Rfam assigns this 91-nucleotide sequence from Lachnospiraceae bacterium YSD2013 to the family "c-di-GMP-I riboswitch aptamer". NCBI's taxonomy places the organism under Bacteria, Bacillati, Bacillota, Lachnospirales, Lachnospiraceae. It scores 66 bits against the family's covariance model.
RNA sequence: AAGCGACAAAGGCAAACCGCACGAAAGUGUGGGACGCAGAACUAAGGGCCUAAAGGGGUAUGGAAGACCUUAUGGCAGCCUGGUAACCGAA
Numbered sequence: 001a002a003g004c005g006a007c008a009a010a011g012g013c014a015a016a017c018c019g020c021a022c023g024a025a026a027g028u029g030u031g032g033g034a035c036g037c038a039g040a041a042c043u044a045a046g047g048g049c050c051u052a053a054a055g056g057g058g059u060a061u062g063g064a065a066g067a068c069c070u071u072a073u074g075g076c077a078g079c080c081u082g083g084u085a086a087c088c089g090a091a
Stems, first nucleotide, its partner, number of pairs: 012037002017032006041084003045081003048076003055070003
The base pairs follow the family's consensus structure, which is taken from published work.